[Rfam]
Glutamine riboswitch aptamer (glnA leader): a 65-nucleotide RNA from Leptolyngbya sp. FACHB-36. It scores 57 bits against the family's covariance model. Rfam links the family to the GO term glutamine binding. Lineage of the source: Bacteria > Cyanobacteriota > Cyanophyceae > Leptolyngbyaceae > Leptolyngbya.
RNA sequence: ACCGUUCAUCUCUCUUGAUGAAGCUGGAGAGACGGAAGUAGGGAGAAGUCCCGAAGGAACGCGCC
Numbered sequence: 001a002c003c004g005u006u007c008a009u010c011u012c013u014c015u016u017g018a019u020g021a022a023g024c025u026g027g028a029g030a031g032a033c034g035g036a037a038g039u040a041g042g043g044a045g046a047a048g049u050c051c052c053g054a055a056g057g058a059a060c061g062c063g064c065c
Stems, first nucleotide, its partner, number of pairs: 003061005009032007035062001041052003